The record is a 98-nucleotide RNA sequence from Morus notabilis, which matches "MIR535 microRNA precursor family" in Rfam.
[Rfam]
RNA sequence: AACAUUGUAUGACAACGAAGGAAAGCACGCAUGUGCACAGCCAUGCCAUCUUUCGCAUGAUUAUCAACAAGCGUGCUCUCUCUCGUUGUCAUCCAAAU
Numbered sequence: 001a002a003c004a005u006u007g008u009a010u011g012a013c014a015a016c017g018a019a020g021g022a023a024a025g026c027a028c029g030c031a032u033g034u035g036c037a038c039a040g041c042c043a044u045g046c047c048a049u050c051u052u053u054c055g056c057a058u059g060a061u062u063a064u065c066a067a068c069a070a071g072c073g074u075g076c077u078c079u080c081u082c083u084c085g086u087u088g089u090c091a092u093c094c095a096a097a098u
Stems, first nucleotide, its partner, number of pairs: 010091005016085002020081002025076006032069003
The source organism's lineage runs through Eukaryota, Tracheophyta, rosids, fabids and Morus. Gene Ontology terms of the family: miRNA-mediated post-transcriptional gene silencing and RISC complex.